[Rfam]
RNA sequence: AUUAAGAAAAAGCUGAGUCCAAAUGCAGUACUUUGGAGCGGGGGAUAAUUUUGGGGUGAAUCACGUGCCUAUUCACGUGUAGGGCUUUACACCUACUGCCCGAAUCCGUCAACUAACCUCGUAAGCUAAGAAAGGUGGACGU
Numbered sequence: 001a002u003u004a005a006g007a008a009a010a011a012g013c014u015g016a017g018u019c020c021a022a023a024u025g026c027a028g029u030a031c032u033u034u035g036g037a038g039c040g041g042g043g044g045a046u047a048a049u050u051u052u053g054g055g056g057u058g059a060a061u062c063a064c065g066u067g068c069c070u071a072u073u074c075a076c077g078u079g080u081a082g083g084g085c086u087u088u089a090c091a092c093c094u095a096c097u098g099c100c101c102g103a104a105u106c107c108g109u110c111a112a113c114u115a116a117c118c119u120c121g122u123a124a125g126c127u128a129a130g131a132a133a134g135g136u137g138g139a140c141g142u
Stems, first nucleotide, its partner, number of pairs: 011127004018037006038122006046053002054107003062079004082101004
Shown here is a 142-nucleotide sequence from Desulfosporosinus sp. HMP52, a member of the family "c-di-AMP riboswitch aptamer (ydaO/yuaA leader)". Rfam describes the family as follows. This family represents a conserved RNA structure found upstream of the ydaO and yuaA genes in Bacillus subtilis and related genes in other bacteria. Taxonomically the source falls in Desulfosporosinus (Bacteria, Bacillota, Eubacteriales, Desulfitobacteriaceae).